[Rfam]
RNA sequence: UCUGGCAAUGAUGACACACUUGCCCUCUCUGAGAAGAGCGUUUGCUAAUGAGAGAUGUGUUAUGUACUCAGCGGAGCUGAGCCAGA
Numbered sequence: 001u002c003u004g005g006c007a008a009u010g011a012u013g014a015c016a017c018a019c020u021u022g023c024c025c026u027c028u029c030u031g032a033g034a035a036g037a038g039c040g041u042u043u044g045c046u047a048a049u050g051a052g053a054g055a056u057g058u059g060u061u062a063u064g065u066a067c068u069c070a071g072c073g074g075a076g077c078u079g080a081g082c083c084a085g086a
Stems, first nucleotide, its partner, number of pairs: 001086006
The record is an 86-nucleotide RNA sequence from Anas platyrhynchos, which matches "Small nucleolar RNA SNORD103/SNORD85" in Rfam. Taxonomically the source falls in Anas platyrhynchos (Eukaryota, Craniata, Euteleostomi, Archosauria). Pairs were carried over by alignment from the consensus structure. On this family, see Huttenhofer et al., EMBO J 2001: "RNomics: an experimental approach that identifies 201 candidates for novel, small, non-messenger RNAs in mouse".